[Rfam]
RNA: Glycine riboswitch aptamer
RNA sequence: UGGACCCGUCCGAGGAGAAUCCGGCCCCGCGCCGGUGCCGAAGGAGCAACCGCCCCGGUAAACUCUCAGGCCCAAGGACCGGACGGCGACA
Numbered sequence: 001u002g003g004a005c006c007c008g009u010c011c012g013a014g015g016a017g018a019a020u021c022c023g024g025c026c027c028c029g030c031g032c033c034g035g036u037g038c039c040g041a042a043g044g045a046g047c048a049a050c051c052g053c054c055c056c057g058g059u060a061a062a063c064u065c066u067c068a069g070g071c072c073c074a075a076g077g078a079c080c081g082g083a084c085g086g087c088g089a090c091a
Base pairs, nucleotide, nucleotide: 006086007085008084009083010082011081012080014079021035022034023033024032037071038070039069040067041066044065045064046063050058051057